[Rfam]
RNA sequence: CUAUAAGUUCAAGGCCACAGCAGAAGCACUCACAGUGCGGCCCUGUCAGAUUCCAACAAAUUUGCAAAUUUUGCU
Numbered sequence: 001c002u003a004u005a006a007g008u009u010c011a012a013g014g015c016c017a018c019a020g021c022a023g024a025a026g027c028a029c030u031c032a033c034a035g036u037g038c039g040g041c042c043c044u045g046u047c048a049g050a051u052u053c054c055a056a057c058a059a060a061u062u063u064g065c066a067a068a069u070u071u072u073g074c075u
Stems, first nucleotide, its partner, number of pairs: 013042004019075007026038003047064006
Background:
The family of this 75-nucleotide RNA from Alligator mississippiensis is "Mammalian CPEB3 ribozyme". A search with the family's covariance model found it, with a score of 49 bits. Lineage of the source: Eukaryota > Dipnotetrapodomorpha > Sauria > Alligatorinae > Alligator. About the family: The mammalian CPEB3 ribozyme is a self cleaving RNA located in the second intron of the CPEB3 gene which belongs to a family of genes regulating messenger RNA polyadenylation. This ribozyme is highly conserved and found only in mammals. The CPEB3 ribozyme is structurally and biochemically related to the human hepatitis delta virus (HDV) ribozyme and the HDV ribozyme is proposed to have arisen from the human transcriptome. There is currently only one other known self cleaving ribozyme in mammals, the CoTC motif.